[Rfam]
RNA: Termite-leu RNA
RNA sequence: AUCAGCCGGUAAGGCGCGGUUCCUUCCCUGUGGAAGGCCAGCGGCUUUACCGGAUUUCUCAAGCGCUCCCUAAGGGGUUAACCCCUUAGGAUACAUAGAGGAGG
Numbered sequence: 001a002u003c004a005g006c007c008g009g010u011a012a013g014g015c016g017c018g019g020u021u022c023c024u025u026c027c028c029u030g031u032g033g034a035a036g037g038c039c040a041g042c043g044g045c046u047u048u049a050c051c052g053g054a055u056u057u058c059u060c061a062a063g064c065g066c067u068c069c070c071u072a073a074g075g076g077g078u079u080a081a082c083c084c085c086u087u088a089g090g091a092u093a094c095a096u097a098g099a100g101g102a103g104g
Base pairs, nucleotide, nucleotide: 006053007052008051009050010049011048012047013046014045015044059091060090070089071088072087073086074085075084076083077082